A member of the RNA family "Lysine riboswitch aptamer" from Clostridiales bacterium CHKCI001, 193 nucleotides long. The source organism's lineage runs through Bacteria, Bacillati, Bacillota, Clostridia and Eubacteriales.

RNA sequence: UAGAAAAGUAGAGGUUGCGUGAUUGAUGAGUAAGCUGUUGGAUAUGUUCUGGCAUAGAAGAAGGCAGUGGAAAGGUGAGAACGCCGAAGGAAUGGAUGCCAGAAUAUCAGUUCCUGGGAAUAUGGUGAAUAACCAUAUAACUGUCAUCUGAUCAAGUUUCUAUCCUAGUGUCAGAUGGGGAGCUACUUAGAGC
Numbered sequence: 001u002a003g004a005a006a007a008g009u010a011g012a013g014g015u016u017g018c019g020u021g022a023u024u025g026a027u028g029a030g031u032a033a034g035c036u037g038u039u040g041g042a043u044a045u046g047u048u049c050u051g052g053c054a055u056a057g058a059a060g061a062a063g064g065c066a067g068u069g070g071a072a073a074g075g076u077g078a079g080a081a082c083g084c085c086g087a088a089g090g091a092a093u094g095g096a097u098g099c100c101a102g103a104a105u106a107u108c109a110g111u112u113c114c115u116g117g118g119a120a121u122a123u124g125g126u127g128a129a130u131a132a133c134c135a136u137a138u139a140a141c142u143g144u145c146a147u148c149u150g151a152u153c154a155a156g157u158u159u160c161u162a163u164c165c166u167a168g169u170g171u172c173a174g175a176u177g178g179g180g181a182g183c184u185a186c187u188u189a190g191a192g193c
Stems, first nucleotide, its partner, number of pairs: 006188006017084004023078003034068006088115006095108004116142002120138007144178009